[Rfam]
RNA sequence: GAAUUUUCGUUGACAGUGGUUAACAAAGUUU
Numbered sequence: 001g002a003a004u005u006u007u008c009g010u011u012g013a014c015a016g017u018g019g020u021u022a023a024c025a026a027a028g029u030u031u
Base pairs, nucleotide, nucleotide: 001031002030003029004028005027006026007025009024010023011022012021013020014018
Dot-bracket structure: (((((((.((((((...).))))))))))))